[Rfam]
This 140-nucleotide RNA sequence from Thermobispora bispora belongs to the Rfam family "SAM riboswitch aptamer (S box leader)".
RNA sequence: CGCUCAUCAAGAGGGGUGGAGGGACCGGCCCUGUGAAGCCCCGGCAACCCUCCCGGUGACUGUGCUCGUAUCCGCGAGGCCGGCCGGGACAGGUGCCAAUUCCGGCUCCCGGCCAAGGUGGUCGGGAGUGAAGAUGAGGG
Numbered sequence: 001c002g003c004u005c006a007u008c009a010a011g012a013g014g015g016g017u018g019g020a021g022g023g024a025c026c027g028g029c030c031c032u033g034u035g036a037a038g039c040c041c042c043g044g045c046a047a048c049c050c051u052c053c054c055g056g057u058g059a060c061u062g063u064g065c066u067c068g069u070a071u072c073c074g075c076g077a078g079g080c081c082g083g084c085c086g087g088g089a090c091a092g093g094u095g096c097c098a099a100u101u102c103c104g105g106c107u108c109c110c111g112g113c114c115a116a117g118g119u120g121g122u123c124g125g126g127a128g129u130g131a132a133g134a135u136g137a138g139g140g
Base pairs, nucleotide, nucleotide: 001140003138004137005136006135007134008133013042014041015040016039017038021031022030023029025105026104027103028102043097044096045095046094048093049092051089052088053087054086055085056084057083101132106128107127108126109125110124111123112122113121114120
Gene Ontology term of the family: regulation of gene expression. The match comes from Rfam's covariance-model search (78 bits). From the family's description: The SAM riboswitch is found upstream of a number of genes which code for proteins involved in methionine or cysteine biosynthesis in Gram-positive bacteria. The SAM riboswitch acts at the level of transcription termination control. The predicted structure consists of a complex stem-loop region followed by a single stem loop terminator region. An alternative and mutually exclusive form involves bases in the 3' segment of helix 1 with those in the 5' region of helix 5 to form a structure termed the anti-terminator form. NCBI's taxonomy places the organism under Bacteria, Actinomycetota, Actinomycetes, Streptosporangiaceae, Thermobispora bispora.